[Rfam]
RNA sequence: GAAAUCCUGCUUGGUAAGGCAAAGCCAAGCCACCAAUAGCGAGUCUUGGACGGCUGAAAGUAAUUUCUGACGUUAAGCGUAGACAGCUAGGUAGUAGGCCUGAAAGUGAUUGAGCCUCGAAAUGAGUAAAACGGAGAGGUCGACGUUUUCGAAAGUACGGAAGACAAUACUCAUUCAGGCGUUAAGGGCGAGGAUGAAUGAGCUCUCCCGGGGUCGCAGAGCC
Numbered sequence: 001g002a003a004a005u006c007c008u009g010c011u012u013g014g015u016a017a018g019g020c021a022a023a024g025c026c027a028a029g030c031c032a033c034c035a036a037u038a039g040c041g042a043g044u045c046u047u048g049g050a051c052g053g054c055u056g057a058a059a060g061u062a063a064u065u066u067c068u069g070a071c072g073u074u075a076a077g078c079g080u081a082g083a084c085a086g087c088u089a090g091g092u093a094g095u096a097g098g099c100c101u102g103a104a105a106g107u108g109a110u111u112g113a114g115c116c117u118c119g120a121a122a123u124g125a126g127u128a129a130a131a132c133g134g135a136g137a138g139g140u141c142g143a144c145g146u147u148u149u150c151g152a153a154a155g156u157a158c159g160g161a162a163g164a165c166a167a168u169a170c171u172c173a174u175u176c177a178g179g180c181g182u183u184a185a186g187g188g189c190g191a192g193g194a195u196g197a198a199u200g201a202g203c204u205c206u207c208c209c210g211g212g213g214u215c216g217c218a219g220a221g222c223c
Stems, first nucleotide, its partner, number of pairs: 012035003018031003024189001026188001037089004043084004047079002049074004054069001056067004112215001114214006133208006139165003144159003170202008180192001
RNA: Group II catalytic intron D1-D4-6
Organism: Paenibacillaceae bacterium